Record summary:
The family of this 71-nucleotide RNA from Bombyx mori is "mir-2774 microRNA precursor family". The family's consensus secondary structure was predicted with RNAalifold. Its family is annotated with RISC complex and miRNA-mediated post-transcriptional gene silencing in the Gene Ontology.
[Rfam]
RNA sequence: ACAGCAUUCGGGCCGUCGGUUUACCGAGGAAUACCAAUCACCCGGUCGGUGGAAGAUCUUCCCUUUGUCUU
Numbered sequence: 001a002c003a004g005c006a007u008u009c010g011g012g013c014c015g016u017c018g019g020u021u022u023a024c025c026g027a028g029g030a031a032u033a034c035c036a037a038u039c040a041c042c043c044g045g046u047c048g049g050u051g052g053a054a055g056a057u058c059u060u061c062c063c064u065u066u067g068u069c070u071u
Stems, first nucleotide, its partner, number of pairs: 004068003010062003015057003020053008